Shown here is a 112-nucleotide RNA from Setaria viridis, a member of the family "Small nucleolar RNA Z278". The family's RNA type in Rfam is C/D-box small nucleolar RNA. The base pairs follow the family's consensus structure, which was predicted with PFOLD. Rfam describes the family as follows. snoZ278 is a C/D box small nucleolar RNA. Its methylation guide targets have not been reported.
[Rfam]
RNA sequence: ACCUACGAUGAGUGCAAAUAUUUGAGGUGCAGGCAACUUCCAAGUCCCUGUUGCAGGGAGAACCUACUUGGGGUCCCACAUUCAAAUGAGAUGUAUGGGCAUCUACUGAGGU
Numbered sequence: 001a002c003c004u005a006c007g008a009u010g011a012g013u014g015c016a017a018a019u020a021u022u023u024g025a026g027g028u029g030c031a032g033g034c035a036a037c038u039u040c041c042a043a044g045u046c047c048c049u050g051u052u053g054c055a056g057g058g059a060g061a062a063c064c065u066a067c068u069u070g071g072g073g074u075c076c077c078a079c080a081u082u083c084a085a086a087u088g089a090g091a092u093g094u095a096u097g098g099g100c101a102u103c104u105a106c107u108g109a110g111g112u
Stems, first nucleotide, its partner, number of pairs: 001112003046058005